[Rfam]
RNA sequence: AAAGAGAUUGCCAACCAUGUGUUUUAUUGGCGUCACCUUACUACUUUGAUUGGUAGGGUUCGAUGCUGAUAACGGUAUACUCUUUGUAUAUAAUUCGUUGUGAUACAUGGGAGAUUGAAUUAAGGAAGAUGUAUCUCCAGCUGAUGAAAUGUAGGGAGGCCUUUUUUGCUUUUCUGCGCCAAAAUCUGAUUCAGUUGGUCAUAAUUCUGGCUACAUAU
Numbered sequence: 001a002a003a004g005a006g007a008u009u010g011c012c013a014a015c016c017a018u019g020u021g022u023u024u025u026a027u028u029g030g031c032g033u034c035a036c037c038u039u040a041c042u043a044c045u046u047u048g049a050u051u052g053g054u055a056g057g058g059u060u061c062g063a064u065g066c067u068g069a070u071a072a073c074g075g076u077a078u079a080c081u082c083u084u085u086g087u088a089u090a091u092a093a094u095u096c097g098u099u100g101u102g103a104u105a106c107a108u109g110g111g112a113g114a115u116u117g118a119a120u121u122a123a124g125g126a127a128g129a130u131g132u133a134u135c136u137c138c139a140g141c142u143g144a145u146g147a148a149a150u151g152u153a154g155g156g157a158g159g160c161c162u163u164u165u166u167u168g169c170u171u172u173u174c175u176g177c178g179c180c181a182a183a184a185u186c187u188g189a190u191u192c193a194g195u196u197g198g199u200c201a202u203a204a205u206u207c208u209g210g211c212u213a214c215a216u217a218u
Base pairs, nucleotide, nucleotide: 015110016109017108018107019106020105021104022103024072025071026070027069028068029067030066031065032064033063034062035059036058037057038056041052073102074101123212124211128207129206137198138197139196140195141194142193143192144191151177152176153175154174156172157171158170159169160168